This 94-nucleotide RNA sequence from Equus caballus belongs to the Rfam family "mir-4667 microRNA precursor family".
A search with the family's covariance model found it, with a score of 76 bits.
The base pairs follow the family's consensus structure, which was predicted with RNAalifold.

RNA sequence: GGAGGUUGAGGUCCCGAUUAGGGGGCAGAAAGAGAACCCAAGGAAGACUGACUUGGAGGCCGCUCCUCUCUGUCCCCACAGGACUUUGGCCUGG
Numbered sequence: 001g002g003a004g005g006u007u008g009a010g011g012u013c014c015c016g017a018u019u020a021g022g023g024g025g026c027a028g029a030a031a032g033a034g035a036a037c038c039c040a041a042g043g044a045a046g047a048c049u050g051a052c053u054u055g056g057a058g059g060c061c062g063c064u065c066c067u068c069u070c071u072g073u074c075c076c077c078a079c080a081g082g083a084c085u086u087u088g089g090c091c092u093g094g
Base pairs, nucleotide, nucleotide: 003092004091005090006089007088008087009086010085011084012083013082014081016079019078021076022075023074025073026072027071028070029069030067032065033064034063037058038056039055040054041053042052